[Rfam]
Nucleotides: 118
Base pairs, nucleotide, nucleotide: 003116004115005114006113007112008111013042014041015040016039017038021031022030023029026083027082028081043076044075045074046073048072049071052068053067054066055065080110085107086106087105088104089103090102
Number, partner (000 for none) and nucleotide at each position: 001000g002000g003116c004115u005114c006113a007112u008111c009000c010000a011000g012000a013042g014041g015040g016039g017038c018000a019000g020000a021031g022030g023029g024000a025000a026083c027082g028081g029023c030022c031021c032000a033000g034000c035000g036000a037000a038017g039016c040015c041014c042013c043076g044075g045074c046073a047000a048072c049071c050000a051000c052068c053067c054066g055065c056000a057000u058000c059000c060000g061000a062000u063000g064000c065055g066054c067053g068052g069000c070000a071049g072048g073046u074045g075044c076043u077000a078000a079000u080110u081028c082027c083026g084000a085107c086106c087105c088104g089103c090102g091000g092000c093000a094000g095000a096000c097000c098000g099000c100000c101000a102090c103089g104088c105087g106086g107085g108000a109000a110080a111008g112007a113006u114005g115004a116003g117000g118000a

Description
This 118-nucleotide sequence from Frankia canadensis belongs to the Rfam family "SAM riboswitch aptamer (S box leader)". A search with the family's covariance model found it, with a score of 76 bits. The family's consensus secondary structure is taken from published work. NCBI's taxonomy places the organism under Bacteria, Actinomycetes, Frankiales, Frankiaceae, Frankia. Gene Ontology term of the family: regulation of gene expression.